[Rfam]
RNA sequence: GGCCGAUGAUGCUUAGAGAAUUGUCCGUACCAUAUGAAAAUCUUUUUUUGAUUAGUCUUCCUCUACAUAUUUUCUGAGGUUC
Numbered sequence: 001g002g003c004c005g006a007u008g009a010u011g012c013u014u015a016g017a018g019a020a021u022u023g024u025c026c027g028u029a030c031c032a033u034a035u036g037a038a039a040a041u042c043u044u045u046u047u048u049u050g051a052u053u054a055g056u057c058u059u060c061c062u063c064u065a066c067a068u069a070u071u072u073u074c075u076g077a078g079g080u081u082c
Stems, first nucleotide, its partner, number of pairs: 001081004
RNA: small nucleolar RNA snoR117